[Rfam]
A member of the RNA family "Group II catalytic intron D1-D4-5", 207 nucleotides long. Its family is annotated with Group II intron splicing in the Gene Ontology. The literature on the family includes a 2001 paper in Trends Genet by Bonen and Vogel, "The ins and outs of group II introns". Rfam describes the family as follows. Group II introns are found in rRNA, tRNA and mRNA of organelles in fungi, plants and protists, and also in mRNA in bacteria.
RNA sequence: UACUAUUGAAUGAAGGAAUGAAGGAAUGAUCAGAAACGUGGAAAAUCCAUUCUAAAUGUUCUUUACUUUGUCAGAAAAUCCAAUGAUUAUUUUUCUUGGGGGUGGGAGGAGCGGAAGAGGUGAGUAGAAUACACUAUAAACUCCUCUCCAUGAGACUGUAAAAUCCUUGAAGGCAGGGAUGGUGUUUACCAACUCUAGUAUAUUGUA
Numbered sequence: 001u002a003c004u005a006u007u008g009a010a011u012g013a014a015g016g017a018a019u020g021a022a023g024g025a026a027u028g029a030u031c032a033g034a035a036a037c038g039u040g041g042a043a044a045a046u047c048c049a050u051u052c053u054a055a056a057u058g059u060u061c062u063u064u065a066c067u068u069u070g071u072c073a074g075a076a077a078a079u080c081c082a083a084u085g086a087u088u089a090u091u092u093u094u095c096u097u098g099g100g101g102g103u104g105g106g107a108g109g110a111g112c113g114g115a116a117g118a119g120g121u122g123a124g125u126a127g128a129a130u131a132c133a134c135u136a137u138a139a140a141c142u143c144c145u146c147u148c149c150a151u152g153a154g155a156c157u158g159u160a161a162a163a164u165c166c167u168u169g170a171a172g173g174c175a176g177g178g179a180u181g182g183u184g185u186u187u188a189c190c191a192a193c194u195c196u197a198g199u200a201u202a203u204u205g206u207a
Stems, first nucleotide, its partner, number of pairs: 018050003022046001031040002052198003061111004065103003071099003122195004131185005136159003142155002163180007